[Rfam]
RNA: U5 spliceosomal RNA
Organism: Betta splendens
RNA sequence: UCACUCUUGUGUCUCUUCAGAUCGUACAAAUCUUUCGCCUUUUACUAAAGAUUUCCGUGGAGAGGAACAUCAAGAGUAUAUCCUAAUUUUUUGUCGCCCUGCGAUUGUGGGGCU
Numbered sequence: 001u002c003a004c005u006c007u008u009g010u011g012u013c014u015c016u017u018c019a020g021a022u023c024g025u026a027c028a029a030a031u032c033u034u035u036c037g038c039c040u041u042u043u044a045c046u047a048a049a050g051a052u053u054u055c056c057g058u059g060g061a062g063a064g065g066a067a068c069a070u071c072a073a074g075a076g077u078a079u080a081u082c083c084u085a086a087u088u089u090u091u092u093g094u095c096g097c098c099c100u101g102c103g104a105u106u107g108u109g110g111g112g113c114u
Stems, first nucleotide, its partner, number of pairs: 003077004009068002012065008028054008096113006